[Rfam]
The family of this 97-nucleotide RNA from Sphaerochaeta pleomorpha is "azaaromatic riboswitch aptamer (yjdF RNA)". The match comes from Rfam's covariance-model search (78 bits).
Nucleotides: 097
Base pairs, nucleotide, nucleotide: 005088006087007086008085009084010083011082022042023041025040026039027038028037043054044053045052046051064074065073066072
Number, partner (000 for none) and nucleotide at each position: 001000u002000c003000u004000a005088g006087u007086c008085g009084a010083a011082a012000u013000a014000a015000a016000a017000a018000c019000a020000c021000a022042g023041u024000u025040c026039c027038g028037g029000u030000u031000g032000g033000u034000a035000g036000u037028c038027c039026g040025g041023a042022c043054g044053c045052a046051g047000u048000a049000a050000c051046u052045u053044g054043u055000a056000a057000g058000u059000a060000a061000c062000c063000u064074g065073c066072c067000u068000c069000c070000u071000c072066g073065g074064u075000u076000g077000u078000c079000c080000g081000u082011u083010u084009u085008c086007g087006a088005c089000c090000u091000u092000u093000g094000g095000a096000u097000u